[Rfam]
RNA sequence: AAUCAAACAGGAAAUGGUGUCUUCCUGAACACAACCGCCAAUAGUGGCUGAUGGCGCCUGCAAACAA
Numbered sequence: 001a002a003u004c005a006a007a008c009a010g011g012a013a014a015u016g017g018u019g020u021c022u023u024c025c026u027g028a029a030c031a032c033a034a035c036c037g038c039c040a041a042u043a044g045u046g047g048c049u050g051a052u053g054g055c056g057c058c059u060g061c062a063a064a065c066a067a
Stems, first nucleotide, its partner, number of pairs: 010025004016058006037048004
Fluoride riboswitch aptamer (crcB RNA motif): a 67-nucleotide RNA from Mucilaginibacter arboris.